RNA sequence: AUCUGGGGUGAGUUUUGCAGGAUUGCAUCCGGCUUUAUUACAACAUGCUGUGCAAAUCCAUGCAAAACUCGCUGCGCCA
Numbered sequence: 001a002u003c004u005g006g007g008g009u010g011a012g013u014u015u016u017g018c019a020g021g022a023u024u025g026c027a028u029c030c031g032g033c034u035u036u037a038u039u040a041c042a043a044c045a046u047g048c049u050g051u052g053c054a055a056a057u058c059c060a061u062g063c064a065a066a067a068c069u070c071g072c073u074g075c076g077c078c079a
Base pairs, nucleotide, nucleotide: 004076005075007073008072009071010070011069012068013067014066015065016064017063018062019061020059021058023055024054025053026052027051028050031049032048033047
RNA: mir-19 microRNA precursor family